The record is a 115-nucleotide RNA from Granulicatella adiacens, which matches "FMN riboswitch aptamer (RFN element)" in Rfam. It scores 111 bits against the family's covariance model. Its family is annotated with FMN binding in the Gene Ontology. The RFN element is a highly conserved domain that is found frequently in the 5'-untranslated regions of prokaryotic mRNAs that encode for flavin mononucleotide (FMN) biosynthesis and transport proteins. This element is a metabolite-dependent riboswitch that directly binds FMN in the absence of proteins.
RNA sequence: UAACAUUUUCGGGGCAAGGUGAAAUUCCUGACCGGUGGUAUAGUCCACGAGCCGCUUGGCAUGAUCUGGUGUGAUUCCAGAACCGAUAGUAUAGUCUAGAUGUGAGAAAAUGGCA
Numbered sequence: 001u002a003a004c005a006u007u008u009u010c011g012g013g014g015c016a017a018g019g020u021g022a023a024a025u026u027c028c029u030g031a032c033c034g035g036u037g038g039u040a041u042a043g044u045c046c047a048c049g050a051g052c053c054g055c056u057u058g059g060c061a062u063g064a065u066c067u068g069g070u071g072u073g074a075u076u077c078c079a080g081a082a083c084c085g086a087u088a089g090u091a092u093a094g095u096c097u098a099g100a101u102g103u104g105a106g107a108a109a110a111u112g113g114c115a
Stems, first nucleotide, its partner, number of pairs: 004112007017029003031095002033085002035048004043083002053059001065081005087098003